[Rfam]
RNA sequence: CGGACAUUUAUUUCUUCAGUUUCUUCUUAAAGUGAAGAUAACUCCUUGUAAUUGUUCUAGGGAAAUACAGUAAUUUUCUGUUCAUCCUUUGUAAGUAAAAUGGGUGGAUAGUUCUACUGACAUUU
Numbered sequence: 001c002g003g004a005c006a007u008u009u010a011u012u013u014c015u016u017c018a019g020u021u022u023c024u025u026c027u028u029a030a031a032g033u034g035a036a037g038a039u040a041a042c043u044c045c046u047u048g049u050a051a052u053u054g055u056u057c058u059a060g061g062g063a064a065a066u067a068c069a070g071u072a073a074u075u076u077u078c079u080g081u082u083c084a085u086c087c088u089u090u091g092u093a094a095g096u097a098a099a100a101u102g103g104g105u106g107g108a109u110a111g112u113u114c115u116a117c118u119g120a121c122a123u124u125u
Stems, first nucleotide, its partner, number of pairs: 002057005008051004018043004022038005068119005087102001089100002
RNA: Small Cajal body specific RNA 24
Organism: Chrysochloris asiatica